[Rfam]
RNA sequence: GCCCCAUUCGUCUAGUGGCCCAGGACGCGGCCCUCUCAAGGCCGAAACAGGGGUUCGAGUCCCCUAUGGGGCA
Dot-bracket structure: (((((((..((((.........)))).(((((.......)))))....(((((.......)))))))))))).
Annotation:
A member of the RNA family "tRNA" from Promineifilum breve, 73 nucleotides long. A search with the family's covariance model found it, with a score of 62 bits. Taxonomically the source falls in Promineifilum (SeqCode) (Bacteria, Bacillati, Chloroflexota, Promineifilaceae (SeqCode)).